[Rfam]
RNA sequence: GAAUCCUUUAAAGUUAGUCCCGUGAGGCUAGUAAGGUGAUCUUUUAAAUUAGGGAAAGUCUAACCUAGUUUAGUAAAUCCUCUUGCCGCCGCGGGCAAGGGGAUUUUUUUAU
Numbered sequence: 001g002a003a004u005c006c007u008u009u010a011a012a013g014u015u016a017g018u019c020c021c022g023u024g025a026g027g028c029u030a031g032u033a034a035g036g037u038g039a040u041c042u043u044u045u046a047a048a049u050u051a052g053g054g055a056a057a058g059u060c061u062a063a064c065c066u067a068g069u070u071u072a073g074u075a076a077a078u079c080c081u082c083u084u085g086c087c088g089c090c091g092c093g094g095g096c097a098a099g100g101g102g103a104u105u106u107u108u109u110u111a112u
Stems, first nucleotide, its partner, number of pairs: 005036004014031006044073010056061001075106013
A member of the RNA family "PyrR binding site" from Loigolactobacillus coryniformis, 112 nucleotides long. Gene Ontology terms of the family: pyrimidine nucleobase transport and pyrimidine nucleobase biosynthetic process. A search with the family's covariance model found it, with a score of 63 bits. The base pairs follow the family's consensus structure, which is taken from published work.